The record is a 125-nucleotide sequence from Reinekea blandensis, which matches "Ribosomal S15 leader" in Rfam. The base pairs follow the family's consensus structure, which is taken from published work. Rfam's curators write: The E. coli Ribosomal S15 gene 5' UTR can form two alternative structures. For this family Rfam cites "Pseudoknot and translational control in the expression of the S15 ribosomal protein" (Benard et al., Biochimie, 1996).
[Rfam]
RNA sequence: GAAUGCGGCUGUUAAUGUGCACGGCAUGCACUCCUUUAUUGAAACGCACAUUCUUGGAGUAAAGUACGAUGGCUUUAAGCGUCGAAAAGAAAGCGGAAAUCAUCAAAGAGUUCGGACAGGGCGAA
Numbered sequence: 001g002a003a004u005g006c007g008g009c010u011g012u013u014a015a016u017g018u019g020c021a022c023g024g025c026a027u028g029c030a031c032u033c034c035u036u037u038a039u040u041g042a043a044a045c046g047c048a049c050a051u052u053c054u055u056g057g058a059g060u061a062a063a064g065u066a067c068g069a070u071g072g073c074u075u076u077a078a079g080c081g082u083c084g085a086a087a088a089g090a091a092a093g094c095g096g097a098a099a100u101c102a103u104c105a106a107a108g109a110g111u112u113c114g115g116a117c118a119g120g121g122c123g124a125a
Stems, first nucleotide, its partner, number of pairs: 008025005053079007